[Rfam]
The record is a 600-nucleotide part of an RNA from Heterosiphonia plumosa, which matches "Eukaryotic small subunit ribosomal RNA" in Rfam. Gene Ontology terms of the family: ribosome and structural constituent of ribosome. The base pairs follow the family's consensus structure, which is taken from published work.
RNA sequence: AACCUGGUUGAUCCUGCCAGUGGUAUAUGCUUGUCUCAAAGACUAAGCCAUGCAAGUGCCAGUAUGAGUGACUCUACAUAACGAAACUGCGAAUGGCUCGGUAAAACAGCUAUAAUUUAAUCGGGGGUAAUACUACUUGGAUAACCGUAGUAAUUCUAGAGCUAAUACAUGCUACAUAAAGUGGACUUUGGUUCACGGUACAAGGUAUUAGAUACAAACAACAGUUUUCUGUUGAUUCAUACUUUUUGUCUGAUCGCGUGCAUUCGUGCCGAGAUCGACGCCCCGUUUAAAUUUCUGACCUAUCAACUAUGAUGGUAAGGUAGGGUCUUACCAUGGUUGUGACGGGUAACGGACCGUGGGUGCGGGAUUCCGGAGAGGGAGCCUGAGAAACGGCUACCACAUCCAAGGAAGGCAGCAGGCGCGUAACUUACCCAAUGCGGACACCGCGAGGUAGUGACAAGAAAUAGCAAUAGAGGGCCUGAUGGGCUUUUCUAAUUGGAAUGAGAACAAUGUAAACGGCUUAUCGAGGAGCCAGCAGAGGGCAAGUCUGGUGCCAGCAGCCGCGGUAAUUCCAGCUCUGUAAGCGUAUACCAAAGUUGU
Numbered sequence: 001a002a003c004c005u006g007g008u009u010g011a012u013c014c015u016g017c018c019a020g021u022g023g024u025a026u027a028u029g030c031u032u033g034u035c036u037c038a039a040a041g042a043c044u045a046a047g048c049c050a051u052g053c054a055a056g057u058g059c060c061a062g063u064a065u066g067a068g069u070g071a072c073u074c075u076a077c078a079u080a081a082c083g084a085a086a087c088u089g090c091g092a093a094u095g096g097c098u099c100g101g102u103a104a105a106a107c108a109g110c111u112a113u114a115a116u117u118u119a120a121u122c123g124g125g126g127g128u129a130a131u132a133c134u135a136c137u138u139g140g141a142u143a144a145c146c147g148u149a150g151u152a153a154u155u156c157u158a159g160a161g162c163u164a165a166u167a168c169a170u171g172c173u174a175c176a177u178a179a180a181g182u183g184g185a186c187u188u189u190g191g192u193u194c195a196c197g198g199u200a201c202a203a204g205g206u207a208u209u210a211g212a213u214a215c216a217a218a219c220a221a222c223a224g225u226u227u228u229c230u231g232u233u234g235a236u237u238c239a240u241a242c243u244u245u246u247u248g249u250c251u252g253a254u255c256g257c258g259u260g261c262a263u264u265c266g267u268g269c270c271g272a273g274a275u276c277g278a279c280g281c282c283c284c285g286u287u288u289a290a291a292u293u294u295c296u297g298a299c300c301u302a303u304c305a306a307c308u309a310u311g312a313u314g315g316u317a318a319g320g321u322a323g324g325g326u327c328u329u330a331c332c333a334u335g336g337u338u339g340u341g342a343c344g345g346g347u348a349a350c351g352g353a354c355c356g357u358g359g360g361u362g363c364g365g366g367a368u369u370c371c372g373g374a375g376a377g378g379g380a381g382c383c384u385g386a387g388a389a390a391c392g393g394c395u396a397c398c399a400c401a402u403c404c405a406a407g408g409a410a411g412g413c414a415g416c417a418g419g420c421g422c423g424u425a426a427c428u429u430a431c432c433c434a435a436u437g438c439g440g441a442c443a444c445c446g447c448g449a450g451g452u453a454g455u456g457a458c459a460a461g462a463a464a465u466a467g468c469a470a471u472a473g474a475g476g477g478c479c480u481g482a483u484g485g486g487c488u489u490u491u492c493u494a495a496u497u498g499g500a501a502u503g504a505g506a507a508c509a510a511u512g513u514a515a516a517c518g519g520c521u522u523a524u525c526g527a528g529g530a531g532c533c534a535g536c537a538g539a540g541g542g543c544a545a546g547u548c549u550g551g552u553g554c555c556a557g558c559a560g561c562c563g564c565g566g567u568a569a570u571u572c573c574a575g576c577u578c579u580g581u582a583a584g585c586g587u588a589u590a591c592c593a594a595a596g597u598u599g600u
Base pairs, nucleotide, nucleotide: 004020005019006018007017008016022592023591024590025589026588027587028586029585030584031583034462035461036460040455041422047420048419049418051417052416053415056090057089061088062087063086068082069081097375098374099373107297108296109295112292113291116290117289122285123284124283125282136171138169139168145161148158149157150156178199181196182195185192186191204243205242206241207240208239217233218232219231220230254278255277256276263273264272265271299346300345301344306337307336308335312334313333314332315331316330317329318328319327350372351371352370353369354365355364356363357362377398378397380395381394382393400411402409403408428453430452431451432450436448437447438446439445440444468498469497470496471494472493473492474491475490476489477488479486480485505525506524507522509521511519535581536580537579538578539577540576548575549574550573551572557564558563
Dot-bracket structure: ...(((((.......))))).((((((((((..(((...((.....(((.(((..((...(((....((...........))...)))))......(((.......(((..((..((....((((..........(.((.....(..(((.....)))..)......)).)......(..((..((....))..))..)....(((((........((((.........)))).....)))))..........(((......(((.....)))..)))...))))...))))..))).(((....(((...((((((((.......)))))))))))......)))...((((((((....))))...))))))).((.(((..........))).)).(.((....)).)...)))))).).....(.(((...(((((...))))).)))).)....))).....((((((((((.((....)).))))))).)))......(((.(.(.......).)).)).........((((((.......((((.....((....)).......)))))))))).))))))))))........